A member of the RNA family "Bacterial RNase P class A" from Schaedlerella arabinosiphila, 355 nucleotides long. From the family's description: Ribonuclease P (RNase P) is a ubiquitous endoribonuclease, found in archaea, bacteria and eukarya as well as chloroplasts and mitochondria. Its best characterised activity is the generation of mature 5'-ends of tRNAs by cleaving the 5'-leader elements of precursor-tRNAs. Cellular RNase Ps are ribonucleoproteins. RNA from bacterial RNase Ps retains its catalytic activity in the absence of the protein subunit, i.e. it is a ribozyme. It is annotated as a ribozyme. Lineage of the source: Bacteria > Bacillati > Lachnospirales > Lachnospiraceae > Schaedlerella. Pairs were carried over by alignment from the consensus structure, which is taken from published work.
RNA sequence: UAAGUAAGACAGACAAUCGCGGCUGCAGAGGCCGAAAGGCAGCAGACGAGGAAAGUCCGGGCUUCACAGGGCAGGAUGCCGGAUAACGUCCGGUGGAGGUGACUCCAAGGCCAGUGCAACAGAAAUAAACCGCCCCAUGCCACGGCAUGAGGUAAGGGUGGAAAGGCAGUGUAAGAGACUACCGCCUCCCUGGUAACAGGGAGGGCACAUGUAAACCCCAUCCGAAGCAAGACCGGAAGAAAGCGAUGUGGCGGCCCGUCACGCUUUAGGUAGGUCGCUUGAGCCCGGCGGCAACGCUGGGCCUAGAUAGAUGAUUGUCCAACGACAUAACCCGGCUUAUCGUUUUGCUUAAAUC
Numbered sequence: 001u002a003a004g005u006a007a008g009a010c011a012g013a014c015a016a017u018c019g020c021g022g023c024u025g026c027a028g029a030g031g032c033c034g035a036a037a038g039g040c041a042g043c044a045g046a047c048g049a050g051g052a053a054a055g056u057c058c059g060g061g062c063u064u065c066a067c068a069g070g071g072c073a074g075g076a077u078g079c080c081g082g083a084u085a086a087c088g089u090c091c092g093g094u095g096g097a098g099g100u101g102a103c104u105c106c107a108a109g110g111c112c113a114g115u116g117c118a119a120c121a122g123a124a125a126u127a128a129a130c131c132g133c134c135c136c137a138u139g140c141c142a143c144g145g146c147a148u149g150a151g152g153u154a155a156g157g158g159u160g161g162a163a164a165g166g167c168a169g170u171g172u173a174a175g176a177g178a179c180u181a182c183c184g185c186c187u188c189c190c191u192g193g194u195a196a197c198a199g200g201g202a203g204g205g206c207a208c209a210u211g212u213a214a215a216c217c218c219c220a221u222c223c224g225a226a227g228c229a230a231g232a233c234c235g236g237a238a239g240a241a242a243g244c245g246a247u248g249u250g251g252c253g254g255c256c257c258g259u260c261a262c263g264c265u266u267u268a269g270g271u272a273g274g275u276c277g278c279u280u281g282a283g284c285c286c287g288g289c290g291g292c293a294a295c296g297c298u299g300g301g302c303c304u305a306g307a308u309a310g311a312u313g314a315u316u317g318u319c320c321a322a323c324g325a326c327a328u329a330a331c332c333c334g335g336c337u338u339a340u341c342g343u344u345u346u347g348c349u350u351a352a353a354u355c
Base pairs, nucleotide, nucleotide: 001351002350003349004348005347006346007345008344009343010342011340012319013318014317015316016315017314018313020048021047023045024044025043026042028040053338054337055336057335058334059333060332061331062227063226064225065224069257070256071255072254074223075222076221077220078219079093080092081091082090083089094108095106096105097104098103109218110217114216115215116212117211118210130157131156132153133152134151136149137148138147139146140145165183166182168180169179170178184206185204186203187202188201189200190199191198192197231276232275233274234273240267241266242265243264244263245262249261250260251259252258283302284301285300286299287298288297289296290295